RNA sequence: UUAUAAGCAGAUUUUCACUUUUUAGAUUCGUUGGAUAACUAGUGUAUCUGGCCUUAAUUAUAGACUAGAUACAUUGGUUAUCUAAUGAAUCUAGAAAGUGGAAAUUUGCUUAUAA
Numbered sequence: 001u002u003a004u005a006a007g008c009a010g011a012u013u014u015u016c017a018c019u020u021u022u023u024a025g026a027u028u029c030g031u032u033g034g035a036u037a038a039c040u041a042g043u044g045u046a047u048c049u050g051g052c053c054u055u056a057a058u059u060a061u062a063g064a065c066u067a068g069a070u071a072c073a074u075u076g077g078u079u080a081u082c083u084a085a086u087g088a089a090u091c092u093a094g095a096a097a098g099u100g101g102a103a104a105u106u107u108g109c110u111u112a113u114a115a
Stems, first nucleotide, its partner, number of pairs: 002114006009107005015101011027089018049067003
Annotation:
A member of the RNA family "MIR2593 microRNA precursor family" from Trifolium medium, 115 nucleotides long. The match comes from Rfam's covariance-model search (98 bits). Rfam 15.1 lists 1,262 matches to the family in 6 species. Lineage of the source: Eukaryota > Euphyllophyta > rosids > Hologalegina > Trifolium. Pairs were carried over by alignment from the consensus structure, which was predicted with RNAalifold.